[Rfam]
RNA sequence: AGUUCGGGAGCCAGAGCACUAGGGAUCUUUGGCAAGAAUAGGACUGAAGCGUGUUUCGUUGGCUUUGGACGUCGGUACCCGACGAUGGUUCAG
Numbered sequence: 001a002g003u004u005c006g007g008g009a010g011c012c013a014g015a016g017c018a019c020u021a022g023g024g025a026u027c028u029u030u031g032g033c034a035a036g037a038a039u040a041g042g043a044c045u046g047a048a049g050c051g052u053g054u055u056u057c058g059u060u061g062g063c064u065u066u067g068g069a070c071g072u073c074g075g076u077a078c079c080c081g082a083c084g085a086u087g088g089u090u091c092a093g
Stems, first nucleotide, its partner, number of pairs: 001045005010033007065093005070087005

A member of the RNA family "Rhodo-rpoB RNA" from Amylibacter sp. SFDW26, 93 nucleotides long. The family's consensus secondary structure is taken from published work. A search with the family's covariance model found it, with a score of 53 bits. Taxonomically the source falls in Amylibacter (Bacteria, Pseudomonadota, Alphaproteobacteria, Rhodobacterales).